[Rfam]
The family of this 77-nucleotide sequence from Salix dunnii is "Small nucleolar RNA Z122". By type it is a C/D-box small nucleolar RNA. On this family, see Qu et al., Mol Cell Biol 1999: "Seven novel methylation guide small nucleolar RNAs are processed from a common polycistronic transcript by Rat1p and RNase III in yeast". Rfam links the family to the GO terms nucleolus and RNA processing. A search with the family's covariance model found it, with a score of 47 bits. The family's consensus secondary structure was predicted with PFOLD. Rfam 15.1 lists 822 matches to the family in 247 species.

RNA sequence: GUUUGGAUGUGAUGCCUAAACAGAAUAUCAGAGGCUUUCAGCACUGCUGAAAUUUUGCACGUCAGUCUGAUCCAAAA
Dot-bracket structure: .((((((...............................................................)))))).